[Rfam]
RNA sequence: GGGAGUAGAUGGGUGCUGGUGUGCCCCCCGGUCUUCAAAACCGGUGAGAGGGGUGAAGAGCCUCUCGGGUGAGUUCGAUCCUCACAUGCUCCC
Number, nucleotide and partner (000 for none) at each position: 001g093002g092003g091004a090005g089006u088007a087008g085009a000010u000011g026012g025013g024014u023015g022016c021017u000018g000019g000020u000021g016022u015023g014024c013025c012026c011027c000028c044029c043030g042031g041032u040033c000034u000035u000036c000037a000038a000039a000040a032041c031042c030043g029044g028045u000046g000047a065048g064049a063050g062051g061052g000053g000054u000055g000056a000057a000058g000059a000060g000061c051062c050063u049064c048065u047066c000067g000068g000069g000070u084071g083072a082073g081074u000075u000076c000077g000078a000079u000080c000081c073082u072083c071084a070085c008086a000087u007088g006089c005090u004091c003092c002093c001
Overview: This 93-nucleotide RNA sequence from Ruminococcaceae bacterium AF10-16 belongs to the Rfam family "Selenocysteine transfer RNA". NCBI's taxonomy places the organism under Bacteria, Bacillati, Clostridia, Eubacteriales, Oscillospiraceae. Rfam 15.1 lists 4,211 matches to the family in 3,344 species.